[Rfam]
RNA sequence: GAAUAAGCGUAUGUGGUGGAUGCCUAGGCGAUAGAAGGCGAUGAAGGACGUGGUAGCCUGCGAAAUGCUUCGGGGAGCUGGCAAACAAGCUUUGAUCCGGAGAUGUCCGAAUGGGGAAACCCACUGCUUCGGCAGUACUUGCAACUGAAUACAUAGGUUGCAAGAGCGAACCCGGGGAAUUGAAACAUCUCAGUACCCGGAGGAAGAGAAAUCAACCGAGAUUCCGUCAGUAGUGGCGAGCGAAAGCGGAACAGCCCAGUUGGAACCAGUCGAUAGAGCUUAGUGGAACGGUCUGGAAAGUCCGGCCAUAGCGGGUGAUAGCCCCGUACACGAAAGGCAAAGUCGAUGACCAACGAAGAGUAGGGCGGGACACGUGUAAUCCUGUCUGAACAUGGGGGGACCAUCCUCCAAGGCUAAAUACUCUCUAUCGACCGAUAGUGAACCAGUACCGUGAGGGAAAGGCGAAAAGAACCCCGGAGAGGGGAGUGAAAUAGAACCUGAAACCGCAUACGUACAAG
Numbered sequence: 001g002a003a004u005a006a007g008c009g010u011a012u013g014u015g016g017u018g019g020a021u022g023c024c025u026a027g028g029c030g031a032u033a034g035a036a037g038g039c040g041a042u043g044a045a046g047g048a049c050g051u052g053g054u055a056g057c058c059u060g061c062g063a064a065a066u067g068c069u070u071c072g073g074g075g076a077g078c079u080g081g082c083a084a085a086c087a088a089g090c091u092u093u094g095a096u097c098c099g100g101a102g103a104u105g106u107c108c109g110a111a112u113g114g115g116g117a118a119a120c121c122c123a124c125u126g127c128u129u130c131g132g133c134a135g136u137a138c139u140u141g142c143a144a145c146u147g148a149a150u151a152c153a154u155a156g157g158u159u160g161c162a163a164g165a166g167c168g169a170a171c172c173c174g175g176g177g178a179a180u181u182g183a184a185a186c187a188u189c190u191c192a193g194u195a196c197c198c199g200g201a202g203g204a205a206g207a208g209a210a211a212u213c214a215a216c217c218g219a220g221a222u223u224c225c226g227u228c229a230g231u232a233g234u235g236g237c238g239a240g241c242g243a244a245a246g247c248g249g250a251a252c253a254g255c256c257c258a259g260u261u262g263g264a265a266c267c268a269g270u271c272g273a274u275a276g277a278g279c280u281u282a283g284u285g286g287a288a289c290g291g292u293c294u295g296g297a298a299a300g301u302c303c304g305g306c307c308a309u310a311g312c313g314g315g316u317g318a319u320a321g322c323c324c325c326g327u328a329c330a331c332g333a334a335a336g337g338c339a340a341a342g343u344c345g346a347u348g349a350c351c352a353a354c355g356a357a358g359a360g361u362a363g364g365g366c367g368g369g370a371c372a373c374g375u376g377u378a379a380u381c382c383u384g385u386c387u388g389a390a391c392a393u394g395g396g397g398g399g400a401c402c403a404u405c406c407u408c409c410a411a412g413g414c415u416a417a418a419u420a421c422u423c424u425c426u427a428u429c430g431a432c433c434g435a436u437a438g439u440g441a442a443c444c445a446g447u448a449c450c451g452u453g454a455g456g457g458a459a460a461g462g463c464g465a466a467a468a469g470a471a472c473c474c475c476g477g478a479g480a481g482g483g484g485a486g487u488g489a490a491a492u493a494g495a496a497c498c499u500g501a502a503a504c505c506g507c508a509u510a511c512g513u514a515c516a517a518g
Stems, first nucleotide, its partner, number of pairs: 007513010022498001023462002027433002029430007036422002038167002046108003049062003068102007077090003113122003123136005138164009171202001172200005182189002212219002222418001223250005233241002253415004259354005269347006278338004283331003289304003293300001307311001313325003363387008394409005449456002472484004